ACEA small nucleolar RNA U3: a 202-nucleotide RNA from Babesia sp. Xinjiang. Rfam 15.1 lists 2,156 matches to the family in 132 species. Taxonomically the source falls in Babesia (Eukaryota, Sar, Apicomplexa, Piroplasmida). The family is grouped with related families in Rfam's "U3 clan". Pairs were carried over by alignment from the consensus structure, which is taken from published work. Small nucleolar RNAs (snoRNAs) are involved in the processing and modification of rRNA in the nucleolus. There are two main classes of snoRNAs: the box C/D class, and the box H/ACA class. U3 snoRNA is a member of the box C/D class. Indeed, the box C/D element is a subset of the six short sequence elements found in all U3 snoRNAs, namely boxes A, A', B, C, C', and D. The U3 snoRNA secondary structure is characterised by a small 5' domain (with boxes A and A'), and a larger 3' domain (with boxes B, C, C', and D), the two domains being linked by a single-stranded hinge. Boxes B and C form the B/C motif, which appears to be exclusive to U3 snoRNAs, and boxes C' and D form the C'/D motif. The latter is functionally similar to the C/D motifs found in other snoRNAs. The 5' domain and the hinge region act as a pre-rRNA-binding domain. The 3' domain has conserved protein-binding sites. Both the box B/C and box C'/D motifs are sufficient for nuclear retention of U3 snoRNA. The box C'/D motif is also necessary for nucleolar localisation, stability and hyper-methylation of U3 snoRNA. Both box B/C and C'/D motifs are involved in specific protein interactions and are necessary for the rRNA processing functions of U3 snoRNA. It scores 116 bits against the family's covariance model.
[Rfam]
RNA sequence: UCGACUGUGCUCGUACAGGAUCACUUCUAUAGUGAAUCUGGUUACCGGUGCCAUCAGCGACAGUUGCUGUCAACAGCCGUGAUGAUGAGUUGUACGUUCUGCCGUCCGCGGAAUUAUGUUAUCAAAUUUUUUAAUUUGCUUGACGUCGAUGAAGUGUGUUUACCUAUACGGUGACAGCGGUAUUGAACGAAUCUGAACGGCA
Numbered sequence: 001u002c003g004a005c006u007g008u009g010c011u012c013g014u015a016c017a018g019g020a021u022c023a024c025u026u027c028u029a030u031a032g033u034g035a036a037u038c039u040g041g042u043u044a045c046c047g048g049u050g051c052c053a054u055c056a057g058c059g060a061c062a063g064u065u066g067c068u069g070u071c072a073a074c075a076g077c078c079g080u081g082a083u084g085a086u087g088a089g090u091u092g093u094a095c096g097u098u099c100u101g102c103c104g105u106c107c108g109c110g111g112a113a114u115u116a117u118g119u120u121a122u123c124a125a126a127u128u129u130u131u132u133a134a135u136u137u138g139c140u141u142g143a144c145g146u147c148g149a150u151g152a153a154g155u156g157u158g159u160u161u162a163c164c165u166a167u168a169c170g171g172u173g174a175c176a177g178c179g180g181u182a183u184u185g186a187a188c189g190a191a192u193c194u195g196a197a198c199g200g201c202a
Stems, first nucleotide, its partner, number of pairs: 001041003006035001008034004017028004047071004052066002055063001076201005095189005100182005107156003117145003157176004162172001